RNA sequence: ACUUAUUUAAAUAAAUAGGUAUAUUCUUGAAGUUUGUAACAAUCUCUAAAAUAUAAAUAUGACUUGAUAGUUUGUUCCACAUUUGUAUUUAUAUAUUGAUACCAUUAUCGAAAUCGGCUGAAGAGGACCCUAGUUGGUCCUAAAACGGCCUAAGGUAGAGGGAUUUUAGUCGAUAGGUCCGAGAAGUUCUUCCUCGGGAAUCCGACACUACCCAGUCGUACGGACGGCUGGGUGUCUUUUGAAGAUUUCCCCUCUUUCACGAAA
Dot-bracket structure: .................................................................................(((((...................................................................((.((.(((......((((.....((((((.((...)).))))))....)))).(.(((((..............))))))..............)))..)).))))))).
R2 RNA element: a 264-nucleotide sequence from Agrilus planipennis. Rfam classes the family as a cis-regulatory element. This family represents the 3' UTR region of the R2 retrotransposable element. This family is known to interact with the R2-encoded reverse transcriptase in a reaction known as target primed reverse transcription (TPRT). For this family Rfam cites "Secondary structure models of the 3' untranslated regions of diverse R2 RNAs" (Ruschak et al., RNA, 2004). The base pairs follow the family's consensus structure, which is taken from published work. Gene Ontology term of the family: regulation of reverse transcription. Taxonomically the source falls in Agrilus (Eukaryota, Protostomia, Insecta, Endopterygota).